[Rfam]
RNA sequence: GUGUAUCCGCGUGUGGUUGGCGUUCAGCAUCAAGGACAGGUGUGUUUACCUGUGUGUGGAUGGUGUUCAGCACCAAGGACAGGUAUGUUUACCU
Dot-bracket structure: ...((((.(........(((.(((.(((((((.(.(((((((....))))))).).....))))))).))).)))....).)))).........

A member of the RNA family "mir-2060 microRNA precursor family" from Branchiostoma belcheri, 94 nucleotides long.
Its family is annotated with miRNA-mediated post-transcriptional gene silencing and RISC complex in the Gene Ontology.
The organism belongs to Branchiostoma, within Eukaryota.
The base pairs follow the family's consensus structure, which was predicted with RNAalifold.